Guanidine-I riboswitch aptamer: a 104-nucleotide sequence from Magnetospirillum sp. UT-4. This family represents a conserved RNA structure found upstream of the ykkC and yxkD genes in Bacillus subtilis and related genes in other bacteria. The function of this family is unclear although it has been suggested that it may function to switch on efflux pumps and detoxification systems in response to harmful environmental molecules. Pairs were carried over by alignment from the consensus structure. The organism belongs to Magnetospirillum, within Bacteria. A search with the family's covariance model found it, with a score of 87 bits.
RNA sequence: CGCCAUCGCGUCUAGGGUUCCGGCCGUUUCCACGGUGACUGGUCCGAGAGUCGCAAUCCGCUCCGCAAGGGGCGGACACACGGAGGGAUAAAAGCCCGGGAGGU
Numbered sequence: 001c002g003c004c005a006u007c008g009c010g011u012c013u014a015g016g017g018u019u020c021c022g023g024c025c026g027u028u029u030c031c032a033c034g035g036u037g038a039c040u041g042g043u044c045c046g047a048g049a050g051u052c053g054c055a056a057u058c059c060g061c062u063c064c065g066c067a068a069g070g071g072g073c074g075g076a077c078a079c080a081c082g083g084a085g086g087g088a089u090a091a092a093a094g095c096c097c098g099g100g101a102g103g104u
Base pairs, nucleotide, nucleotide: 008054009053010052012050015045016044020042021041022039023036024035025034026033027032057076058075059074060073061072062071063070079099081102085097086096087095